[Rfam]
RNA: Flavo-1 RNA
RNA sequence: CCCUAGCCCUGAUAGUAGUGGAAAUCCUUUUCUUUUUUUUCUUUAGAAAAAGAAAAGAUUGCAACGAAUAGCAGGAAAUAGC
Numbered sequence: 001c002c003c004u005a006g007c008c009c010u011g012a013u014a015g016u017a018g019u020g021g022a023a024a025u026c027c028u029u030u031u032c033u034u035u036u037u038u039u040u041c042u043u044u045a046g047a048a049a050a051a052g053a054a055a056a057g058a059u060u061g062c063a064a065c066g067a068a069u070a071g072c073a074g075g076a077a078a079u080a081g082c
Base pairs, nucleotide, nucleotide: 009074010073011072013070014069018065019064023060024059025058026057029055030054031053032052033051034049035048036047037046038045